[Rfam]
RNA sequence: UCAUAAACCCGACAGCAACGGAAAUCUUUUUGUGAAGCUGACCCUUCGACUUCGCACAGAGUGACCACACAAAAAAUUGAAGUGUAUGGCGGGACUUAAG
Numbered sequence: 001u002c003a004u005a006a007a008c009c010c011g012a013c014a015g016c017a018a019c020g021g022a023a024a025u026c027u028u029u030u031u032g033u034g035a036a037g038c039u040g041a042c043c044c045u046u047c048g049a050c051u052u053c054g055c056a057c058a059g060a061g062u063g064a065c066c067a068c069a070c071a072a073a074a075a076a077u078u079g080a081a082g083u084g085u086a087u088g089g090c091g092g093g094a095c096u097u098a099a100g
Stems, first nucleotide, its partner, number of pairs: 009092003013088002018083002023078003029073006
The record is a 100-nucleotide sequence from Pedobacter cryotolerans, which matches "Flavo-1 RNA" in Rfam. Pairs were carried over by alignment from the consensus structure, which is taken from published work. The organism belongs to Pedobacter, within Bacteria.